[Rfam]
Nucleotides: 079
Base pairs, nucleotide, nucleotide: 001075002074003073030038031037032036
Number, partner (000 for none) and nucleotide at each position: 001075a002074a003073a004000a005000u006000u007000u008000u009000u010000c011000g012000u013000g014000a015000u016000g017000a018000u019000u020000g021000a022000a023000u024000g025000g026000a027000g028000c029000a030038g031037a032036a033000g034000a035000g036032u037031u038030c039000u040000u041000g042000a043000a044000g045000a046000c047000u048000a049000u050000a051000u052000u053000c054000a055000u056000c057000a058000c059000c060000c061000a062000a063000g064000g065000c066000u067000g068000a069000u070000a071000a072000a073003u074002u075001u076000c077000a078000a079000u